[Rfam]
Annotation
Shown here is a 182-nucleotide RNA from Urocolius indicus, a member of the family "Small nucleolar RNA SNORA81". A reference for the family is Gu et al. (2005), "A novel experimental approach for systematic identification of box H/ACA snoRNAs from eukaryotes", Nucleic Acids Res. The organism belongs to Urocolius, within Eukaryota. Rfam classes the family as an H/ACA-box small nucleolar RNA.

RNA sequence: ACCUUCUUGCUAAAAGCACUGUACUAAAAUUACAGAAACCAAGGCUGAGCUUUGGUUUGUGUAAUAAUGCUAGUAGAGUACACGCAAGAAGAAGAGAAACCAAGCACUGAAUCAGACAUGACUAGGGUGGACCUCUUUCUUAAUGUCCAGUGUCCUAGGUCGUGAGAUUUGGUGCAACAGUU
Numbered sequence: 001a002c003c004u005u006c007u008u009g010c011u012a013a014a015a016g017c018a019c020u021g022u023a024c025u026a027a028a029a030u031u032a033c034a035g036a037a038a039c040c041a042a043g044g045c046u047g048a049g050c051u052u053u054g055g056u057u058u059g060u061g062u063a064a065u066a067a068u069g070c071u072a073g074u075a076g077a078g079u080a081c082a083c084g085c086a087a088g089a090a091g092a093a094g095a096g097a098a099a100c101c102a103a104g105c106a107c108u109g110a111a112u113c114a115g116a117c118a119u120g121a122c123u124a125g126g127g128u129g130g131a132c133c134u135c136u137u138u139c140u141u142a143a144u145g146u147c148c149a150g151u152g153u154c155c156u157a158g159g160u161c162g163u164g165a166g167a168u169u170u171g172g173u174g175c176a177a178c179a180g181u182u
Stems, first nucleotide, its partner, number of pairs: 019078002022075005029068004036058001038056008104175008124153001126151001128149004